[Rfam]
RNA sequence: GUAUGCUUUCAGCUUCUUUACAGUGUUUCCUUGUGGCAUGGUGAUCAAGCAGCAUUGUACAGGGCUAUCAAAGCGCAC
Dot-bracket structure: .............((((.(((((((((..((((............)))).))))))))).))))..............
Rfam assigns this 78-nucleotide RNA sequence from Salmo salar to the family "mir-103/107 microRNA precursor family". This family consists of the mammalian microRNA (miRNA) precursors mir-103 and mir107. Animal miRNAs are transcribed as ~70nt precursors and subsequently processed by the Dicer enzyme to give a ~22nt product. For this family Rfam cites "miRNPs: a novel class of ribonucleoproteins containing numerous microRNAs" (Mourelatos et al., Genes Dev, 2002). Its family is annotated with miRNA-mediated post-transcriptional gene silencing and RISC complex in the Gene Ontology. Pairs were carried over by alignment from the consensus structure, which was predicted with RNAalifold.